Group II catalytic intron D1-D4-6: a 238-nucleotide RNA sequence from Paenibacillus popilliae.
Its family is annotated with Group II intron splicing in the Gene Ontology.
Rfam describes the family as follows. Group II introns are found in rRNA, tRNA and mRNA of organelles in fungi, plants and protists, and also in mRNA in bacteria.
[Rfam]
RNA sequence: GGAGUCCCCUCAGGAUAAAGCCUAACCAGCAGUCCUGUAGCUAGACUAGAUCUUGGAGCUUAUGCGGUAACGAAUAGCUUUAAGCGUAGAACGGCAAAAUAGCGGGCCGAAAGCGAAUGCUGAAGUGAUGGAGCCUCGAAAAAUAAGCUGAGACAGGCCGAUGUGGUUACACACAGAAGGAAAUAUCGGUUCGAGCAUUUUUGGUGAGUUUGAAUCGGCAUUCCGGGGUCUAAGAGCU
Numbered sequence: 001g002g003a004g005u006c007c008c009c010u011c012a013g014g015a016u017a018a019a020g021c022c023u024a025a026c027c028a029g030c031a032g033u034c035c036u037g038u039a040g041c042u043a044g045a046c047u048a049g050a051u052c053u054u055g056g057a058g059c060u061u062a063u064g065c066g067g068u069a070a071c072g073a074a075u076a077g078c079u080u081u082a083a084g085c086g087u088a089g090a091a092c093g094g095c096a097a098a099a100u101a102g103c104g105g106g107c108c109g110a111a112a113g114c115g116a117a118u119g120c121u122g123a124a125g126u127g128a129u130g131g132a133g134c135c136u137c138g139a140a141a142a143a144u145a146a147g148c149u150g151a152g153a154c155a156g157g158c159c160g161a162u163g164u165g166g167u168u169a170c171a172c173a174c175a176g177a178a179g180g181a182a183a184u185a186u187c188g189g190u191u192c193g194a195g196c197a198u199u200u201u202u203g204g205u206g207a208g209u210u211u212g213a214a215u216c217g218g219c220a221u222u223c224c225g226g227g228g229u230c231u232a233a234g235a236g237c238u
Stems, first nucleotide, its partner, number of pairs: 012036005020030002023207001025205002038097001040095002044092001051090003054086002056081003060077004065072002131230001133229006150223003156219001158180002162175004186218011
Notes:
The pairing is the family consensus, mapped onto this sequence.